[Rfam]
RNA sequence: UCUUCAUUUCACGUGCUCUUUCAUUUCUCUAACCGGUGAGAGAGCACGUGAAAUGAAGAGA
Dot-bracket structure: (((((((..(.((((((.((((...............)))).)))))).)..)))))))..
RNA: mir-8364 microRNA precursor family
Organism: Pristionchus pacificus